Record summary
Rfam assigns this 70-nucleotide RNA from Acanthochromis polyacanthus to the family "miR-430 microRNA precursor family". Taxonomically the source falls in Acanthochromis (Eukaryota, Craniata, Gnathostomata, Pomacentridae). Rfam 15.1 lists 24,817 matches to the family in 105 species. A search with the family's covariance model found it, with a score of 53 bits. The family's consensus secondary structure was predicted with RNAalifold. On this family, see Giraldez et al., Science 2005: "MicroRNAs regulate brain morphogenesis in zebrafish".

[Rfam]
RNA sequence: AAUACCACCCUAACAGGAACACUGACUCUGUUUAUGGAUGCAGCAAGUGCUUCUUGUUUGGGUAGUGUUU
Number, nucleotide and partner (000 for none) at each position: 001a000002a000003u000004a066005c065006c000007a063008c062009c061010c060011u000012a000013a057014c056015a055016g054017g053018a051019a000020c049021a048022c047023u046024g000025a000026c043027u042028c000029u000030g000031u000032u000033u000034a000035u000036g000037g000038a000039u000040g000041c000042a027043g026044c000045a000046a023047g022048u021049g020050c000051u018052u000053c017054u016055u015056g014057u013058u000059u000060g010061g009062g008063u007064a000065g005066u004067g000068u000069u000070u000